Small nucleolar RNA SNORD67: a 111-nucleotide RNA from Cottoperca gobio. Rfam describes the family as follows. snoRNA HBII-166 belongs to the C/D family of snoRNAs.
Nucleotides: 111
Stems, first nucleotide, its partner, number of pairs: 004110001006108001024067004029061003033056003039052001041050003
Number, partner (000 for none) and nucleotide at each position: 001000u002000g003000u004110g005000a006108c007000a008000a009000u010000g011000a012000u013000g014000a015000g016000u017000u018000g019000c020000a021000c022000g023000a024067u025066u026065a027064g028000u029061c030060g031059g032000g033056u034055u035054g036000c037000u038000g039052u040000u041050u042049g043048c044000a045000g046000u047000u048043g049042c050041a051000c052039a053000g054035c055034a056033g057000a058000c059031c060030c061029g062000u063000c064027c065026u066025g067024a068000c069000a070000a071000c072000c073000u074000g075000u076000g077000g078000u079000g080000a081000c082000a083000g084000c085000c086000a087000u088000u089000g090000u091000g092000c093000a094000c095000a096000g097000g098000g099000g100000c101000c102000a103000u104000c105000u106000g107000a108006g109000a110004c111000a